[Rfam]
RNA: c-sis internal ribosome entry site (IRES)
RNA sequence: CGGAGCAGCCGCAGCUCGCAGCUCGCAGCCCGCAGCCCGCAGAGGACGCCCAGAGCGGCGAGCGGGCGGGCAGACGGACCGACGGACUCGCGCCGCGUCCACCUGUCGGCCGGGCCCAGCCGAGCGCGCAGCGGGCACGCCGCGCGCGCGGAGCAGCCGUGCCCGCCGCCCGGGCCCGCCGCCAGGGCGCACACGCUCCCGCCCCCCUACCCGGCCCGGGCGGGAGUUUGCACCUCUCCCUGCCCGGGUGCUCGAGCUGCCGUUGCAAAGCCAACUUUGGAAAAAGUUUUUUGGGGGAGACUUGGGCCUUGAGGUGCCCAGCUCCGCGCUUUCCGAUUUUGGGGGCCUUUCCAGAAAAUGUUGCAAAAAAGCUAAGCCGGCGGGCAGAGGAAAACGCCUGUAGCCGGCGAGUGAAGACGAACCAUCGACUGCCGUGUUCCUUUUCCUCUUGGAGGUUGGAGUCCCCUGGGCGCCCCCACACGGCUAGACGCCUCGGCUGGUUCGCGACGCAGCCCCCCGGCCGUGGAUGCUCACUCGGGCUCGGGAUCC
Dot-bracket structure: .((.(((((.((((((((.(((................(.(((((.(((((.(.((((((.((.(((((((...(((.(((((((...(((...))).....)))))))))).)))).)))...((.((.(((((((((((((....))))......))))))))).)).)).)).))))))).)))))..((.((((((((((.((.....))...)))))))))).))..))))).)..........))))))))))).)))))....)).(((((....))))).........................((((....((((((((....(((.....((((((................((......))...((((((..((((.(.....)..)))).))))))..(((..(.(((((((((((((((((((((((.(((((....)))))..)))((((...))))......))))))).)).....)))).))))))))..))).))))))))).)))))).)).))))..............
Numbered sequence: 001c002g003g004a005g006c007a008g009c010c011g012c013a014g015c016u017c018g019c020a021g022c023u024c025g026c027a028g029c030c031c032g033c034a035g036c037c038c039g040c041a042g043a044g045g046a047c048g049c050c051c052a053g054a055g056c057g058g059c060g061a062g063c064g065g066g067c068g069g070g071c072a073g074a075c076g077g078a079c080c081g082a083c084g085g086a087c088u089c090g091c092g093c094c095g096c097g098u099c100c101a102c103c104u105g106u107c108g109g110c111c112g113g114g115c116c117c118a119g120c121c122g123a124g125c126g127c128g129c130a131g132c133g134g135g136c137a138c139g140c141c142g143c144g145c146g147c148g149c150g151g152a153g154c155a156g157c158c159g160u161g162c163c164c165g166c167c168g169c170c171c172g173g174g175c176c177c178g179c180c181g182c183c184a185g186g187g188c189g190c191a192c193a194c195g196c197u198c199c200c201g202c203c204c205c206c207c208u209a210c211c212c213g214g215c216c217c218g219g220g221c222g223g224g225a226g227u228u229u230g231c232a233c234c235u236c237u238c239c240c241u242g243c244c245c246g247g248g249u250g251c252u253c254g255a256g257c258u259g260c261c262g263u264u265g266c267a268a269a270g271c272c273a274a275c276u277u278u279g280g281a282a283a284a285a286g287u288u289u290u291u292u293g294g295g296g297g298a299g300a301c302u303u304g305g306g307c308c309u310u311g312a313g314g315u316g317c318c319c320a321g322c323u324c325c326g327c328g329c330u331u332u333c334c335g336a337u338u339u340u341g342g343g344g345g346c347c348u349u350u351c352c353a354g355a356a357a358a359u360g361u362u363g364c365a366a367a368a369a370a371g372c373u374a375a376g377c378c379g380g381c382g383g384g385c386a387g388a389g390g391a392a393a394a395c396g397c398c399u400g401u402a403g404c405c406g407g408c409g410a411g412u413g414a415a416g417a418c419g420a421a422c423c424a425u426c427g428a429c430u431g432c433c434g435u436g437u438u439c440c441u442u443u444u445c446c447u448c449u450u451g452g453a454g455g456u457u458g459g460a461g462u463c464c465c466c467u468g469g470g471c472g473c474c475c476c477c478a479c480a481c482g483g484c485u486a487g488a489c490g491c492c493u494c495g496g497c498u499g500g501u502u503c504g505c506g507a508c509g510c511a512g513c514c515c516c517c518c519g520g521c522c523g524u525g526g527a528u529g530c531u532c533a534c535u536c537g538g539g540c541u542c543g544g545g546a547u548c549c
Stems, first nucleotide, its partner, number of pairs: 002272002005266005011260008020252003039239001041237005047189005053183001055182006062175002065121003068117004075112003079109007089097003125172002128169002131166009140151004192230002195227010206214002274287005313535004321530002323527006333520003341517006363372002376408006384401004389395001411510003416505001418504007425496004429487002431484007438460003442455005461471004